[Rfam]
RNA sequence: GUAGGACAUCGGCAAACCCGGGGAAAUCCGGCGACGCAAAGCUAUAGGGACUGUAAAAUGUCAGCCAGCUGCAAUC
Numbered sequence: 001g002u003a004g005g006a007c008a009u010c011g012g013c014a015a016a017c018c019c020g021g022g023g024a025a026a027u028c029c030g031g032c033g034a035c036g037c038a039a040a041g042c043u044a045u046a047g048g049g050a051c052u053g054u055a056a057a058a059u060g061u062c063a064g065c066c067a068g069c070u071g072c073a074a075u076c
Stems, first nucleotide, its partner, number of pairs: 012037002018031005040070004047066002049062003